RNA sequence: AUGCCAGGAGAGAGAGGCAGGGUCUGAUCCAUAGCCUCGGUGGAAGCUGUUGAUCAGCCGUUGCCUCUCCCUUUCUCUCUG
Numbered sequence: 001a002u003g004c005c006a007g008g009a010g011a012g013a014g015a016g017g018c019a020g021g022g023u024c025u026g027a028u029c030c031a032u033a034g035c036c037u038c039g040g041u042g043g044a045a046g047c048u049g050u051u052g053a054u055c056a057g058c059c060g061u062u063g064c065c066u067c068u069c070c071c072u073u074u075c076u077c078u079c080u081g
Stems, first nucleotide, its partner, number of pairs: 008073003012069009022059001024057006032049004